[Rfam]
RNA sequence: CUUGCAGGACAGUGUGUAUCGGCUUUACGCCUUUUUGUGCGUCUUUGCCGAAAGUGUUUCCUGCUAUACUGAUCUGGGGAAUGUGGGCAGUUGGGUUAAGCUUGUGUGCUUUCUUCAACAAUCAUUUUCCUCUCAUGU
Numbered sequence: 001c002u003u004g005c006a007g008g009a010c011a012g013u014g015u016g017u018a019u020c021g022g023c024u025u026u027a028c029g030c031c032u033u034u035u036u037g038u039g040c041g042u043c044u045u046u047g048c049c050g051a052a053a054g055u056g057u058u059u060c061c062u063g064c065u066a067u068a069c070u071g072a073u074c075u076g077g078g079g080a081a082u083g084u085g086g087g088c089a090g091u092u093g094g095g096u097u098a099a100g101c102u103u104g105u106g107u108g109c110u111u112u113c114u115u116c117a118a119c120a121a122u123c124a125u126u127u128u129c130c131u132c133u134c135a136u137g138u
Stems, first nucleotide, its partner, number of pairs: 004064005009058001014042006076132006083125004090119004
RNA: small nucleolar RNA snoR135
Organism: Zizania palustris